This 47-nucleotide sequence from Pardalotus punctatus belongs to the Rfam family "Guanidine-II riboswitch aptamer (mini-ykkC)".
The base pairs follow the family's consensus structure, which is taken from published work.
The organism belongs to Pardalotus, within Eukaryota.
[Rfam]
RNA sequence: UUUCGGGGACGACCCCGUGACCCCAAAACUUUUCGGGGAUGACCCCG
Numbered sequence: 001u002u003u004c005g006g007g008g009a010c011g012a013c014c015c016c017g018u019g020a021c022c023c024c025a026a027a028a029c030u031u032u033u034c035g036g037g038g039a040u041g042a043c044c045c046c047g
Stems, first nucleotide, its partner, number of pairs: 001020002004017005034047005